[Rfam]
Record summary
Small nucleolar RNA U3: a 211-nucleotide RNA sequence from Tribolium castaneum. The literature on the family includes a 2010 paper in RNA Biol by Marz and Stadler, "Comparative analysis of eukaryotic U3 snoRNA". Small nucleolar RNAs (snoRNAs) are involved in the processing and modification of rRNA in the nucleolus. There are two main classes of snoRNAs: the box C/D class, and the box H/ACA class. U3 snoRNA is a member of the box C/D class. It is annotated as a C/D-box small nucleolar RNA.

RNA sequence: AAGAUCAUACUUCACAGGAUCAUUUCUGUAGUAUAUCUUCACAUACUCUACACUCAAACGUAGAGUUGACGCAACCACGAUGAUGAGGGACAGUCCUGUAUCCUGAGCGUGAGGCAGAUUUGUUUCAGGUUGCAAAACCUGGCUCAAGUCAUCGAUGAUCGUUCGCAUGAGCUUUUUGCUCAUGUCAUGGAUGCAGGACAGUCUGAGUGGU
Numbered sequence: 001a002a003g004a005u006c007a008u009a010c011u012u013c014a015c016a017g018g019a020u021c022a023u024u025u026c027u028g029u030a031g032u033a034u035a036u037c038u039u040c041a042c043a044u045a046c047u048c049u050a051c052a053c054u055c056a057a058a059c060g061u062a063g064a065g066u067u068g069a070c071g072c073a074a075c076c077a078c079g080a081u082g083a084u085g086a087g088g089g090a091c092a093g094u095c096c097u098g099u100a101u102c103c104u105g106a107g108c109g110u111g112a113g114g115c116a117g118a119u120u121u122g123u124u125u126c127a128g129g130u131u132g133c134a135a136a137a138c139c140u141g142g143c144u145c146a147a148g149u150c151a152u153c154g155a156u157g158a159u160c161g162u163u164c165g166c167a168u169g170a171g172c173u174u175u176u177u178g179c180u181c182a183u184g185u186c187a188u189g190g191a192u193g194c195a196g197g198a199c200a201g202u203c204u205g206a207g208u209g210g211u
Stems, first nucleotide, its partner, number of pairs: 001039005007034005015028005048063004074211005093199011107162003117150006127140005165185008